Source information: The record is a 64-nucleotide sequence from Ottowia flava, which matches "Betaproteobacteria toxic small RNA" in Rfam. Rfam 15.1 lists 951 matches to the family in 508 species. The match comes from Rfam's covariance-model search (58 bits). The family's consensus secondary structure was predicted with WAR. A reference for the family is Kimelman et al. (2012), "A vast collection of microbial genes that are toxic to bacteria", Genome Res. From the family's description: Overexpression in amino aid rich medium attenuates growth, suggesting role in repressing amino acid intake and metabolism.
[Rfam]
RNA sequence: UGUCUCCUCCACCCCUUCAAUAGGUGGAUUAAGCCCCGGCGCUCUGGCUCCGGGGCUUUUUUUU
Numbered sequence: 001u002g003u004c005u006c007c008u009c010c011a012c013c014c015c016u017u018c019a020a021u022a023g024g025u026g027g028a029u030u031a032a033g034c035c036c037c038g039g040c041g042c043u044c045u046g047g048c049u050c051c052g053g054g055g056c057u058u059u060u061u062u063u064u
Stems, first nucleotide, its partner, number of pairs: 008028006032057008